[Rfam]
RNA sequence: AAGCAGUGAUGAAAACUGCAUACAAUGUGGCACAAAGGUUCGCCACUGUCUUCAGAUCUACCUGAAGAAGCUAUGUGUGCAUCUGAGCUU
Numbered sequence: 001a002a003g004c005a006g007u008g009a010u011g012a013a014a015a016c017u018g019c020a021u022a023c024a025a026u027g028u029g030g031c032a033c034a035a036a037g038g039u040u041c042g043c044c045a046c047u048g049u050c051u052u053c054a055g056a057u058c059u060a061c062c063u064g065a066a067g068a069a070g071c072u073a074u075g076u077g078u079g080c081a082u083c084u085g086a087g088c089u090u
Base pairs, nucleotide, nucleotide: 001090002089003088004087